A member of the RNA family "PyrR binding site" from Neobacillus massiliamazoniensis, 124 nucleotides long. The source organism's lineage runs through Bacteria, Bacillati, Bacillota, Bacilli and Neobacillus. Rfam describes the family as follows. This family represents the PyrR binding site and terminator structure. This RNA structure is found upstream of a variety of genes involved in pyrimidine biosynthesis and transport. The alignment also includes a portion of the antiterminator structure. Its family is annotated with pyrimidine nucleobase transport and pyrimidine nucleobase biosynthetic process in the Gene Ontology. The match comes from Rfam's covariance-model search (56 bits).
[Rfam]
RNA sequence: UGAGCCUUUAAAUCAGUCCCGUGAGGCUGAGAAGGAAACGGAUAAAAACAAUGGUGAUUAAAUAGCCAUUCGUUUAUGAAUAUUCCUUUUCUGCCUCUCGCUACGGUGAGAGGUUUUUAUUUUU
Numbered sequence: 001u002g003a004g005c006c007u008u009u010a011a012a013u014c015a016g017u018c019c020c021g022u023g024a025g026g027c028u029g030a031g032a033a034g035g036a037a038a039c040g041g042a043u044a045a046a047a048a049c050a051a052u053g054g055u056g057a058u059u060a061a062a063u064a065g066c067c068a069u070u071c072g073u074u075u076a077u078g079a080a081u082a083u084u085c086c087u088u089u090u091c092u093g094c095c096u097c098u099c100g101c102u103a104c105g106g107u108g109a110g111a112g113g114u115u116u117u118u119a120u121u122u123u124u
Stems, first nucleotide, its partner, number of pairs: 005035005013030006045075003050070006057063001088119001093114009